Shown here is a 159-nucleotide RNA from Clostridium carboxidivorans, a member of the family "Lysine riboswitch aptamer".
It scores 95 bits against the family's covariance model.
The source organism's lineage runs through Bacteria, Bacillota, Clostridia, Eubacteriales and Clostridium carboxidivorans.
Its family is annotated with lysine biosynthetic process in the Gene Ontology.
RNA sequence: AUGUGACAUAGAGGCCGCGGUUGUUAUAAGUACUGACUACAGGAAAGGAACACCCGCCGAAAUACAUAAAAUUUAAUUUUAUGUAUUGGGAUUAUACUGAAUAAGUAUAGUACUGUCUUUGAAAAAUUGCCCGAUUUUUUAAAGGAGUGCUUGUCAUAU
Numbered sequence: 001a002u003g004u005g006a007c008a009u010a011g012a013g014g015c016c017g018c019g020g021u022u023g024u025u026a027u028a029a030g031u032a033c034u035g036a037c038u039a040c041a042g043g044a045a046a047g048g049a050a051c052a053c054c055c056g057c058c059g060a061a062a063u064a065c066a067u068a069a070a071a072u073u074u075a076a077u078u079u080u081a082u083g084u085a086u087u088g089g090g091a092u093u094a095u096a097c098u099g100a101a102u103a104a105g106u107a108u109a110g111u112a113c114u115g116u117c118u119u120u121g122a123a124a125a126a127u128u129g130c131c132c133g134a135u136u137u138u139u140u141a142a143a144g145g146a147g148u149g150c151u152u153g154u155c156a157u158a159u
Stems, first nucleotide, its partner, number of pairs: 005155004010151002017057004022052004033042003061087012088114002091111008116145011